This 67-nucleotide sequence from Virgibacillus necropolis belongs to the Rfam family "Bacillaceae-1 RNA". It scores 38 bits against the family's covariance model. The source organism's lineage runs through Bacteria, Bacillati, Bacillota, Bacilli and Virgibacillus. Rfam classes the family as a small RNA.
RNA sequence: AAAGAAACAAGGUCGACAAAGAACUCAGGCGUCCUGUUGCAAAGUCGACAUGAGCACGUCCUGUGCG
Numbered sequence: 001a002a003a004g005a006a007a008c009a010a011g012g013u014c015g016a017c018a019a020a021g022a023a024c025u026c027a028g029g030c031g032u033c034c035u036g037u038u039g040c041a042a043a044g045u046c047g048a049c050a051u052g053a054g055c056a057c058g059u060c061c062u063g064u065g066c067g
Stems, first nucleotide, its partner, number of pairs: 012049006028038003054066004